[Rfam]
RNA sequence: CACCUAGGGAUCUUGUUAAAAAGCAGAGUCUGAUUGAGGGGCCAAGAUUCUGCAUUUUUAGCAAGCUCUCAAGUGAUG
Numbered sequence: 001c002a003c004c005u006a007g008g009g010a011u012c013u014u015g016u017u018a019a020a021a022a023g024c025a026g027a028g029u030c031u032g033a034u035u036g037a038g039g040g041g042c043c044a045a046g047a048u049u050c051u052g053c054a055u056u057u058u059u060a061g062c063a064a065g066c067u068c069u070c071a072a073g074u075g076a077u078g
Stems, first nucleotide, its partner, number of pairs: 001075003007069003012065007019057003023053005029047003
Source information:
The record is a 78-nucleotide RNA sequence from Mus musculus, which matches "mir-544 microRNA precursor family" in Rfam. Lineage of the source: Eukaryota > Eumetazoa > Dipnotetrapodomorpha > Myomorpha > Mus.